[Rfam]
RNA: L2-Alphaproteobacteria ribosomal protein leader
RNA sequence: GGGCACCUACGGGGGCCUAUAACAUAGCCAGCCACGUGCUGGCGCUACAUAGCUAACGGAAGAAAGCAA
Numbered sequence: 001g002g003g004c005a006c007c008u009a010c011g012g013g014g015g016c017c018u019a020u021a022a023c024a025u026a027g028c029c030a031g032c033c034a035c036g037u038g039c040u041g042g043c044g045c046u047a048c049a050u051a052g053c054u055a056a057c058g059g060a061a062g063a064a065a066g067c068a069a
Stems, first nucleotide, its partner, number of pairs: 001018004006014003027043006
Dot-bracket structure: ((((.(((...)))))))........((((((.....))))))..........................